[Rfam]
RNA sequence: GGGAAACAGGGCCUGGGUUUGGGAGGAGAACCAUCCCAAGCCCAAGACCAAGUAGGAUCC
Numbered sequence: 001g002g003g004a005a006a007c008a009g010g011g012c013c014u015g016g017g018u019u020u021g022g023g024a025g026g027a028g029a030a031c032c033a034u035c036c037c038a039a040g041c042c043c044a045a046g047a048c049c050a051a052g053u054a055g056g057a058u059c060c
Stems, first nucleotide, its partner, number of pairs: 014044011028059002031056002